DUF805b RNA: a 40-nucleotide RNA sequence from Phaeocystidibacter marisrubri.
Pairs were carried over by alignment from the consensus structure, which is taken from published work.
The family is grouped with related families in Rfam's "DUF805 clan".
[Rfam]
RNA sequence: GUAGAGAAUGCCGAAAAUCUACACAUAAAAAGAGUAGGCA
Numbered sequence: 001g002u003a004g005a006g007a008a009u010g011c012c013g014a015a016a017a018u019c020u021a022c023a024c025a026u027a028a029a030a031a032g033a034g035u036a037g038g039c040a
Base pairs, nucleotide, nucleotide: 002021003020004019005018010039011038012037